[Rfam]
RNA sequence: UACGUUCAUCCAGUAUUGGACGGAAGUAGUCAAACAAGUGACGAAGGAACGCCGA
Numbered sequence: 001u002a003c004g005u006u007c008a009u010c011c012a013g014u015a016u017u018g019g020a021c022g023g024a025a026g027u028a029g030u031c032a033a034a035c036a037a038g039u040g041a042c043g044a045a046g047g048a049a050c051g052c053c054g055a
Stems, first nucleotide, its partner, number of pairs: 003051005009020004023052001029042003

Notes: A member of the RNA family "Glutamine riboswitch aptamer (glnA leader)", 55 nucleotides long. The family's consensus secondary structure is taken from published work. Its family is annotated with glutamine binding in the Gene Ontology. On this family, see Ames and Breaker, RNA Biol 2011: "Bacterial aptamers that selectively bind glutamine". It is one of the family's seed sequences.